[Rfam]
RNA sequence: CGAUGUCUGAAGGGAAGGAGCCUUUAGUACGAGAGGAACGGGGGUUCGUGACUUCUGGUUUACCGGUUGUCUGGCAAGGCACCGCCGGGUAGCCACGUCAUUCGCGGAUAAAAGCUGAAAGCAUCUAAGCUUGAAGCCGCCCCUGAAAAUAGACAUCGUUUGAGACCACUCCUAAAAGAGGAGAUUGAUAGAACUGGGAUGUAAGUACCAAGCUUUUGCGAGGUAUUCAGUCCACAGUUACUAAACGGUCGAAUU
Numbered sequence: 001c002g003a004u005g006u007c008u009g010a011a012g013g014g015a016a017g018g019a020g021c022c023u024u025u026a027g028u029a030c031g032a033g034a035g036g037a038a039c040g041g042g043g044g045u046u047c048g049u050g051a052c053u054u055c056u057g058g059u060u061u062a063c064c065g066g067u068u069g070u071c072u073g074g075c076a077a078g079g080c081a082c083c084g085c086c087g088g089g090u091a092g093c094c095a096c097g098u099c100a101u102u103c104g105c106g107g108a109u110a111a112a113a114g115c116u117g118a119a120a121g122c123a124u125c126u127a128a129g130c131u132u133g134a135a136g137c138c139g140c141c142c143c144u145g146a147a148a149a150u151a152g153a154c155a156u157c158g159u160u161u162g163a164g165a166c167c168a169c170u171c172c173u174a175a176a177a178g179a180g181g182a183g184a185u186u187g188a189u190a191g192a193a194c195u196g197g198g199a200u201g202u203a204a205g206u207a208c209c210a211a212g213c214u215u216u217u218g219c220g221a222g223g224u225a226u227u228c229a230g231u232c233c234a235c236a237g238u239u240a241c242u243a244a245a246c247g248g249u250c251g252a253a254u255u
Stems, first nucleotide, its partner, number of pairs: 001158008011144004017047003021043004048101005056095003063088005068081005105139003112132005164250004169183004189243003192239005197233003205226005212219001
The record is a 255-nucleotide part of an RNA from Thermoplasmatales archaeon B_DKE, which matches "Archaeal large subunit ribosomal RNA" in Rfam. On this family, see Yusupov et al., Science 2001: "Crystal structure of the ribosome at 5.5 A resolution". Taxonomically the source falls in Thermoplasmatales (Archaea, Methanobacteriati, Thermoplasmatota, Thermoplasmata). Pairs were carried over by alignment from the consensus structure, which is taken from published work.